[Rfam]
RNA sequence: AAGUCCUUUAAAAUUAGUCCAGAGAGGCUAAGAAGGUGCGGAUUGAGCAAUGGAAUCAGUGUGUCGGUACUGAUGAAAUUCGUUUACCACUUAGCCUUAAACAGUACGUUUUAGGCUGAGUGGUUUUUUAUU
Numbered sequence: 001a002a003g004u005c006c007u008u009u010a011a012a013a014u015u016a017g018u019c020c021a022g023a024g025a026g027g028c029u030a031a032g033a034a035g036g037u038g039c040g041g042a043u044u045g046a047g048c049a050a051u052g053g054a055a056u057c058a059g060u061g062u063g064u065c066g067g068u069a070c071u072g073a074u075g076a077a078a079u080u081c082g083u084u085u086a087c088c089a090c091u092u093a094g095c096c097u098u099a100a101a102c103a104g105u106a107c108g109u110u111u112u113a114g115g116c117u118g119a120g121u122g123g124u125u126u127u128u129u130a131u132u
Base pairs, nucleotide, nucleotide: 005036006035007034008033009032014031015030016029017028018027019026049080050079051078055074056073057072058071059070060069061068062067086124087123088122089121090120091119092118093117094116095115096114
Annotation
PyrR binding site: a 132-nucleotide sequence from Ligilactobacillus ruminis. The family's consensus secondary structure is taken from published work. Lineage of the source: Bacteria > Bacilli > Lactobacillaceae > Ligilactobacillus > Ligilactobacillus ruminis. This family represents the PyrR binding site and terminator structure. This RNA structure is found upstream of a variety of genes involved in pyrimidine biosynthesis and transport. The alignment also includes a portion of the antiterminator structure. Rfam 15.1 lists 1,498 matches to the family in 930 species. By type it is a cis-regulatory element.